Annotation: A member of the RNA family "HDV ribozyme from F. prausnitzii" from Paraglomus brasilianum, 78 nucleotides long. The match comes from Rfam's covariance-model search (45 bits). The source organism's lineage runs through Eukaryota, Glomeromycotina, Glomeromycetes, Paraglomeraceae and Paraglomus. On this family, see Webb et al., Science 2009: "Widespread occurrence of self-cleaving ribozymes".

RNA sequence: CCCGCUCGACAUGCUGCCACCUCAACGUGGUGAGUGGGUGACAACGUCUAUGUAUAUGGACGGCUAAGAGCAGCAUGG
Dot-bracket structure: (((((((...........(((.......))))))))))......(((((((....)))))))................

Rfam links the family to the GO term catalytic activity.